[Rfam]
RNA sequence: CCAACGUGAACAUCCUGUGAGGUUGCUCUCAUGUGGCUCUGUUCAUAUGGCUUUAGGGAGCAUAGUACUGUUUGGUGCAGUGACUGUAUAAUCCCAUUCCAUGACGUUGGACAGCAAGCUUUUUCCCCUGACCAUUUUGGUUGGUGAGGAUAGCGGCCUGUAUAUUCCUACAUCUUCCCAGAGUCCUUGUACAGUUACUGGGGAGACAAACCAUGCAGGUCACACUA
Numbered sequence: 001c002c003a004a005c006g007u008g009a010a011c012a013u014c015c016u017g018u019g020a021g022g023u024u025g026c027u028c029u030c031a032u033g034u035g036g037c038u039c040u041g042u043u044c045a046u047a048u049g050g051c052u053u054u055a056g057g058g059a060g061c062a063u064a065g066u067a068c069u070g071u072u073u074g075g076u077g078c079a080g081u082g083a084c085u086g087u088a089u090a091a092u093c094c095c096a097u098u099c100c101a102u103g104a105c106g107u108u109g110g111a112c113a114g115c116a117a118g119c120u121u122u123u124u125c126c127c128c129u130g131a132c133c134a135u136u137u138u139g140g141u142u143g144g145u146g147a148g149g150a151u152a153g154c155g156g157c158c159u160g161u162a163u164a165u166u167c168c169u170a171c172a173u174c175u176u177c178c179c180a181g182a183g184u185c186c187u188u189g190u191a192c193a194g195u196u197a198c199u200g201g202g203g204a205g206a207c208a209a210a211c212c213a214u215g216c217a218g219g220u221c222a223c224a225c226u227a
Base pairs, nucleotide, nucleotide: 001110002109003108004107005106006105007104008044009043010042011041012040014036015035019028020027021026047102048101049100050099056095057094058093059092060089062087063086064085065081066080157219158218159217160216161215162214163213174205175204176203177202178201179200183192184191
About this RNA
The family of this 227-nucleotide sequence from Erpetoichthys calabaricus is "Small nucleolar RNA SNORA73 family". Rfam classes the family as an H/ACA-box small nucleolar RNA. The family has 66 seed sequences and 2,326 matches in Rfam 15.1. NCBI's taxonomy places the organism under Eukaryota, Vertebrata, Euteleostomi, Actinopterygii, Erpetoichthys. U17 (SNORA73A and SNORA73B) also known as E1 belongs to the H/ACA class of small nucleolar RNAs (snoRNAs). Vertebrate U17 is intron-encoded and ranges in length from 200-230 nucleotides, longer than most snoRNAs. It is one of the most abundant snoRNAs in human cells and is essential for the cleavage of pre-rRNA within the 5' external transcribed spacer (ETS). This cleavage leads to the formation of 18S rRNA. Regions of the U17 RNA are complementary to rRNA and act as guides for RNA/RNA interactions, although these regions do not seem to be well conserved between organisms. The base pairs follow the family's consensus structure, which is taken from published work. A search with the family's covariance model found it, with a score of 173 bits. The family is grouped with related families in Rfam's "snR30-U17 clan". A reference for the family is Enright et al. (1996), "5'ETS rRNA processing facilitated by four small RNAs: U14, E3, U17, and U3", RNA.